[Rfam]
RNA sequence: AUCGUUUAUCCCAAUAGGGACGGAAGUAGGCAAUCGCCGAAGAAACGCUCU
Numbered sequence: 001a002u003c004g005u006u007u008a009u010c011c012c013a014a015u016a017g018g019g020a021c022g023g024a025a026g027u028a029g030g031c032a033a034u035c036g037c038c039g040a041a042g043a044a045a046c047g048c049u050c051u
Stems, first nucleotide, its partner, number of pairs: 003047005009020004023048001029038003
A member of the RNA family "Glutamine riboswitch aptamer (glnA leader)", 51 nucleotides long. Rfam's curators put it in the seed alignment.